A member of the RNA family "mir-22 microRNA precursor family" from Cyprinus carpio, 87 nucleotides long.

RNA sequence: GGCUGACCUACCGCAGUUCUUCUCUGGCAAACUUUAUGACCCUGUCCUGACGCUAAAGCUGCCAGCUGAAGAACUGUUGUGGUCAGC
Numbered sequence: 001g002g003c004u005g006a007c008c009u010a011c012c013g014c015a016g017u018u019c020u021u022c023u024c025u026g027g028c029a030a031a032c033u034u035u036a037u038g039a040c041c042c043u044g045u046c047c048u049g050a051c052g053c054u055a056a057a058g059c060u061g062c063c064a065g066c067u068g069a070a071g072a073a074c075u076g077u078u079g080u081g082g083u084c085a086g087c
Base pairs, nucleotide, nucleotide: 005084006083007082010080011079017073018072019071020070021069022068026063027062028061030060032058033057034056035055036054